[Rfam]
RNA sequence: GUCCCUCAUCUCCCGUGGGGGGAGAGCGGCCGUUUGCGGUCGAUAUCUCUUCAAUUGGGCGGUGAAGACC
Number, nucleotide and partner (000 for none) at each position: 001g000002u000003c000004c000005c000006u065007c064008a063009u062010c061011u000012c059013c058014c057015g056016u000017g050018g049019g048020g047021g046022g000023a000024g000025a000026g040027c039028g000029g037030c036031c000032g000033u000034u000035u000036g030037c029038g000039g027040u026041c000042g000043a000044u000045a000046u021047c020048u019049c018050u017051u000052c000053a000054a000055u000056u015057g014058g013059g012060c000061g010062g009063u008064g007065a006066a000067g000068a000069c000070c000

A member of the RNA family "Hepatitis C virus stem-loop VII" from Orthohepacivirus hominis, 70 nucleotides long.